This 72-nucleotide RNA sequence from Paramecium aurelia belongs to the Rfam family "tRNA".
[Rfam]
RNA sequence: GCUUAAGUAGCUCAGUGGUAGAGCGUUAGACUGAAAAUCUAAAGGUCGUUGGUUCAAUUCCAAUCUUGAGCA
Numbered sequence: 001g002c003u004u005a006a007g008u009a010g011c012u013c014a015g016u017g018g019u020a021g022a023g024c025g026u027u028a029g030a031c032u033g034a035a036a037a038u039c040u041a042a043a044g045g046u047c048g049u050u051g052g053u054u055c056a057a058u059u060c061c062a063a064u065c066u067u068g069a070g071c072a
Stems, first nucleotide, its partner, number of pairs: 001071007010024004026042005048064005
Source information:
Gene Ontology term of the family: triplet codon-amino acid adaptor activity. Taxonomically the source falls in Paramecium (Eukaryota, Alveolata, Intramacronucleata, Peniculida). The family's RNA type in Rfam is transfer RNA.